[Rfam]
RNA sequence: GGGGAGAGUCUUAGAAUCCCCACGAGAUGGCGUGUAAAUAGCGUUUGUCUUUGGCCGGACAGCGUGGUUUGUGAAUC
Numbered sequence: 001g002g003g004g005a006g007a008g009u010c011u012u013a014g015a016a017u018c019c020c021c022a023c024g025a026g027a028u029g030g031c032g033u034g035u036a037a038a039u040a041g042c043g044u045u046u047g048u049c050u051u052u053g054g055c056c057g058g059a060c061a062g063c064g065u066g067g068u069u070u071g072u073g074a075a076u077c
Stems, first nucleotide, its partner, number of pairs: 001021005035071005041065003045062006
RNA: L13-Bacteroidia ribosomal protein leader